[Rfam]
RNA sequence: ACAGAGGGGCUAUGAGCUGAGUGCUUUGUGUCACUCUACCCCGUGUCCCCUGGGAAGGUCUGAGACUAGGGCCAAAAGUGGCCCCAACAGGGUCCUCCCUGAGUUUCAGGGAGGUGAGUUCCCAGAGAUUGGGUCUUUGCUUGAGGUCAGACUGGGCAGGAGAUGCUCUGGACCCCACCCUUGGGGAGGAGGCAGAUGCCUCCUUAGCUGGAGGUUGGAACAGAUUUGCGGCCAGCAAGUGAGUUUAGUGGCUGAGCUGAGGUACCCUGCCCAGGGACCUCAUAACCCAAUUCACACUACUCUCCCCUGU
Numbered sequence: 001a002c003a004g005a006g007g008g009g010c011u012a013u014g015a016g017c018u019g020a021g022u023g024c025u026u027u028g029u030g031u032c033a034c035u036c037u038a039c040c041c042c043g044u045g046u047c048c049c050c051u052g053g054g055a056a057g058g059u060c061u062g063a064g065a066c067u068a069g070g071g072c073c074a075a076a077a078g079u080g081g082c083c084c085c086a087a088c089a090g091g092g093u094c095c096u097c098c099c100u101g102a103g104u105u106u107c108a109g110g111g112a113g114g115u116g117a118g119u120u121c122c123c124a125g126a127g128a129u130u131g132g133g134u135c136u137u138u139g140c141u142u143g144a145g146g147u148c149a150g151a152c153u154g155g156g157c158a159g160g161a162g163a164u165g166c167u168c169u170g171g172a173c174c175c176c177a178c179c180c181u182u183g184g185g186g187a188g189g190a191g192g193c194a195g196a197u198g199c200c201u202c203c204u205u206a207g208c209u210g211g212a213g214g215u216u217g218g219a220a221c222a223g224a225u226u227u228g229c230g231g232c233c234a235g236c237a238a239g240u241g242a243g244u245u246u247a248g249u250g251g252c253u254g255a256g257c258u259g260a261g262g263u264a265c266c267c268u269g270c271c272c273a274g275g276g277a278c279c280u281c282a283u284a285a286c287c288c289a290a291u292u293c294a295c296a297c298u299a300c301u302c303u304c305c306c307c308u309g310u
Stems, first nucleotide, its partner, number of pairs: 001310004005051005019036005024030001061294004070233004080094005095113006114229007134214006258282006
Dot-bracket structure: (((((((((.........((((((.....).)))))..........))))).........((((.....((((......(((((.....)))))((((((.......))))))(((((((.............((((((.....................................................................))))))........)))))))))))........................((((((.............))))))........))))............))))

About this RNA: Shown here is a 310-nucleotide RNA sequence from Felis catus, a member of the family "Nuclear RNase P". The literature on the family includes a 2000 paper in RNA by Frank et al., "Phylogenetic-comparative analysis of the eukaryal ribonuclease P RNA". It is one of the family's seed sequences.